[Rfam]
RNA sequence: UGUUGAUAAGUCAGUGGAUGAUUGCAGGAUAUUCCAUCAGUUAUCAGCAGUUGUACCACUGAUUUGUUAAUGA
Numbered sequence: 001u002g003u004u005g006a007u008a009a010g011u012c013a014g015u016g017g018a019u020g021a022u023u024g025c026a027g028g029a030u031a032u033u034c035c036a037u038c039a040g041u042u043a044u045c046a047g048c049a050g051u052u053g054u055a056c057c058a059c060u061g062a063u064u065u066g067u068u069a070a071u072g073a
Base pairs, nucleotide, nucleotide: 002071003070004069005068006067007066009064010063011062012061013060014059015058016057017056018054019053020052021051022050023049024048025047027045028044031041032040033039